Group I catalytic intron: a 443-nucleotide RNA sequence from Gomphosphaeria aponina. The organism belongs to Gomphosphaeria aponina, within Bacteria. About the family: Group I catalytic introns are large self-splicing ribozymes. They catalyse their own excision from mRNA, tRNA and rRNA precursors in a wide range of organisms. A search with the family's covariance model found it, with a score of 73 bits.

RNA sequence: UAACCAGGGUUAACGUUAGCCCCUUCAGUCAGUAAUGGCUGUCGAAAACUCCCUUAAUUGCUGGGAAAUCUUUGUUAACCAAACUAAAAUGGUUGAUAGUUGAUAGUUGAUAGUUGAACAUGAACGAUUAACAAUCAACAAUUAACAAUGAGCAAUUAUAGAGAUGGUGCAAUAAAGAUAAUCAGCAGCCAAGCGGAGUAAUAAUGAGAAAAAAAUGGGAAGACCACGAAAUCAGAUUCUUGAUUGAUAACUAUAAGCAGUUCAUAGUUAAUAGUUCAUGGUUGAUUGUUCAUGCAACCAUCAACUAUCAACCAUCAACCAUCAACCAUCAUUAUUACUCUGAAGGUUCAACGACUAGCUGAAAAGCGUAGGGUCAAGUGACCCGAAACGGGGAGCAUCCCAAAAGGAUGAUGAUAUAGUCUGAUCUAUCUGGUGACAGAUAG
Numbered sequence: 001u002a003a004c005c006a007g008g009g010u011u012a013a014c015g016u017u018a019g020c021c022c023c024u025u026c027a028g029u030c031a032g033u034a035a036u037g038g039c040u041g042u043c044g045a046a047a048a049c050u051c052c053c054u055u056a057a058u059u060g061c062u063g064g065g066a067a068a069u070c071u072u073u074g075u076u077a078a079c080c081a082a083a084c085u086a087a088a089a090u091g092g093u094u095g096a097u098a099g100u101u102g103a104u105a106g107u108u109g110a111u112a113g114u115u116g117a118a119c120a121u122g123a124a125c126g127a128u129u130a131a132c133a134a135u136c137a138a139c140a141a142u143u144a145a146c147a148a149u150g151a152g153c154a155a156u157u158a159u160a161g162a163g164a165u166g167g168u169g170c171a172a173u174a175a176a177g178a179u180a181a182u183c184a185g186c187a188g189c190c191a192a193g194c195g196g197a198g199u200a201a202u203a204a205u206g207a208g209a210a211a212a213a214a215a216u217g218g219g220a221a222g223a224c225c226a227c228g229a230a231a232u233c234a235g236a237u238u239c240u241u242g243a244u245u246g247a248u249a250a251c252u253a254u255a256a257g258c259a260g261u262u263c264a265u266a267g268u269u270a271a272u273a274g275u276u277c278a279u280g281g282u283u284g285a286u287u288g289u290u291c292a293u294g295c296a297a298c299c300a301u302c303a304a305c306u307a308u309c310a311a312c313c314a315u316c317a318a319c320c321a322u323c324a325a326c327c328a329u330c331a332u333u334a335u336u337a338c339u340c341u342g343a344a345g346g347u348u349c350a351a352c353g354a355c356u357a358g359c360u361g362a363a364a365a366g367c368g369u370a371g372g373g374u375c376a377a378g379u380g381a382c383c384c385g386a387a388a389c390g391g392g393g394a395g396c397a398u399c400c401c402a403a404a405a406g407g408a409u410g411a412u413g414a415u416a417u418a419g420u421c422u423g424a425u426c427u428a429u430c431u432g433g434u435g436a437c438a439g440a441u442a443g
Base pairs, nucleotide, nucleotide: 007022008021009020010019011018012017049395050394051393052392054390059187060186061185062184063183064182069178070177071176072175073174074173075172076171188347189346195340196339201335202334203333204332205331206330207329351422353421354420355419356418357417398408399407400406428441429440430439431438432437